[Rfam]
Annotation: Shown here is a 98-nucleotide sequence from Vagococcus fluvialis, a member of the family "Purine riboswitch aptamer".
RNA sequence: AUGGCUUAUAACUAAAGAGCUUAUAUAUGAUUAUAAUAUGGAUAAUCGUUUCUACUCAGCACCACAAAUGUUGAACUAUAAGCAAAAUAAGGAAACAU
Numbered sequence: 001a002u003g004g005c006u007u008a009u010a011a012c013u014a015a016a017g018a019g020c021u022u023a024u025a026u027a028u029g030a031u032u033a034u035a036a037u038a039u040g041g042a043u044a045a046u047c048g049u050u051u052c053u054a055c056u057c058a059g060c061a062c063c064a065c066a067a068a069u070g071u072u073g074a075a076c077u078a079u080a081a082g083c084a085a086a087a088u089a090a091g092g093a094a095a096c097a098u
Stems, first nucleotide, its partner, number of pairs: 019083007029047006056074006
The family has 133 seed sequences and 4,097 matches in Rfam 15.1.